[Rfam]
RNA sequence: GCUCUGCAUCUGCCAAGGCUAUGCAGGCCGUCCAUCUUGUGUGGUCAGCCGGGUUAUCCUCCUUCGGGAAACACGUUUAUGGGUUGGGCAUAACGCAGAGUAGUGUAAACAUCGAAACGCGUGGCCUGC
Numbered sequence: 001g002c003u004c005u006g007c008a009u010c011u012g013c014c015a016a017g018g019c020u021a022u023g024c025a026g027g028c029c030g031u032c033c034a035u036c037u038u039g040u041g042u043g044g045u046c047a048g049c050c051g052g053g054u055u056a057u058c059c060u061c062c063u064u065c066g067g068g069a070a071a072c073a074c075g076u077u078u079a080u081g082g083g084u085u086g087g088g089c090a091u092a093a094c095g096c097a098g099a100g101u102a103g104u105g106u107a108a109a110c111a112u113c114g115a116a117a118c119g120c121g122u123g124g125c126c127u128g129c
Stems, first nucleotide, its partner, number of pairs: 001028002004026006012019002060069003083129001085128005094121003103113001104111001
This 129-nucleotide sequence belongs to the Rfam family "Bacteriophage Diversity-Generating Retroelement RNA".
The family's RNA type in Rfam is small RNA.
On this family, see Handa et al., Nature 2025: "RNA control of reverse transcription in a diversity-generating retroelement".